The family of this 120-nucleotide RNA sequence from Corynebacterium kutscheri is "atpB RNA". By type it is a cis-regulatory element. The base pairs follow the family's consensus structure, which is taken from published work. The organism belongs to Corynebacterium, within Bacteria.
[Rfam]
RNA sequence: CUGGAGUUGCCAAAGAUGUGCGAAGGAGUCUGAGGUAACUGCAGUGAGUUUUUAAGACGUCCAUCGCACCGUGAAUCUUUUCGCGGCCCGAACACGGGAGAGAACGCUGAGCGUUACAAC
Numbered sequence: 001c002u003g004g005a006g007u008u009g010c011c012a013a014a015g016a017u018g019u020g021c022g023a024a025g026g027a028g029u030c031u032g033a034g035g036u037a038a039c040u041g042c043a044g045u046g047a048g049u050u051u052u053u054a055a056g057a058c059g060u061c062c063a064u065c066g067c068a069c070c071g072u073g074a075a076u077c078u079u080u081u082c083g084c085g086g087c088c089c090g091a092a093c094a095c096g097g098g099a100g101a102g103a104a105c106g107c108u109g110a111g112c113g114u115u116a117c118a119a120c
Base pairs, nucleotide, nucleotide: 001044002043003042005040006039007038008037009036010035011034069086070085071084072083073082074081075080